[Rfam]
RNA sequence: AUAAGAAAAAGAUGCCUUGGUAGAAGUACCAAAAAGCUGAAGAUCAUCGCGGUCUGAGUCUUGGGAGGAAGGAUCUUUAGGCGCGCCAUCUGGUUCGCAGCCGCCCAACCGGAUCAUUAACCUGAUCGGUAAGGGAAUAAGGUCAGUUUAGACGCGGAACUUAACAAAGGCAGGGUUUGACCCUGCCUUUUUCUU
Numbered sequence: 001a002u003a004a005g006a007a008a009a010a011g012a013u014g015c016c017u018u019g020g021u022a023g024a025a026g027u028a029c030c031a032a033a034a035a036g037c038u039g040a041a042g043a044u045c046a047u048c049g050c051g052g053u054c055u056g057a058g059u060c061u062u063g064g065g066a067g068g069a070a071g072g073a074u075c076u077u078u079a080g081g082c083g084c085g086c087c088a089u090c091u092g093g094u095u096c097g098c099a100g101c102c103g104c105c106c107a108a109c110c111g112g113a114u115c116a117u118u119a120a121c122c123u124g125a126u127c128g129g130u131a132a133g134g135g136a137a138u139a140a141g142g143u144c145a146g147u148u149u150a151g152a153c154g155c156g157g158a159a160c161u162u163a164a165c166a167a168a169g170g171c172a173g174g175g176u177u178u179g180a181c182c183c184u185g186c187c188u189u190u191u192u193c194u195u
Stems, first nucleotide, its partner, number of pairs: 003195004048156004059069003072149002075146002080102003083098003104135003168188008
Alphaproteobacterial sRNA ar9: a 195-nucleotide RNA sequence from Labrenzia sp. 011. Lineage of the source: Bacteria > Pseudomonadati > Hyphomicrobiales > Stappiaceae > Labrenzia. It is annotated as a small RNA.